[Rfam]
RNA sequence: CCUCGGGGACGGCCCUGAGCCCACAGCACGUCCCCUCGGGGACGGCCCUG
Numbered sequence: 001c002c003u004c005g006g007g008g009a010c011g012g013c014c015c016u017g018a019g020c021c022c023a024c025a026g027c028a029c030g031u032c033c034c035c036u037c038g039g040g041g042a043c044g045g046c047c048c049u050g
Stems, first nucleotide, its partner, number of pairs: 002019007037050005
RNA: Guanidine-II riboswitch aptamer (mini-ykkC)
Organism: Dromas ardeola